[Rfam]
A member of the RNA family "mir-19 microRNA precursor family" from Arctia plantaginis, 74 nucleotides long. Lineage of the source: Eukaryota > Eumetabola > Amphiesmenoptera > Arctiinae > Arctia. Gene Ontology terms of the family: miRNA-mediated post-transcriptional gene silencing and RISC complex. The family is grouped with related families in Rfam's "mir-19 clan". The literature on the family includes a 2001 paper in Science by Lagos-Quintana et al., "Identification of novel genes coding for small expressed RNAs". The match comes from Rfam's covariance-model search (50 bits).

RNA sequence: GUAGCGGCACAUUUUUGCACGGUUGCAUUGAUGAGACAUGUCAUCAAUGCAACCGUGCAAAAAUGUGCCGCUCU
Numbered sequence: 001g002u003a004g005c006g007g008c009a010c011a012u013u014u015u016u017g018c019a020c021g022g023u024u025g026c027a028u029u030g031a032u033g034a035g036a037c038a039u040g041u042c043a044u045c046a047a048u049g050c051a052a053c054c055g056u057g058c059a060a061a062a063a064u065g066u067g068c069c070g071c072u073c074u
Stems, first nucleotide, its partner, number of pairs: 003072026030045002
Pairs were carried over by alignment from the consensus structure, which was predicted with RNAalifold.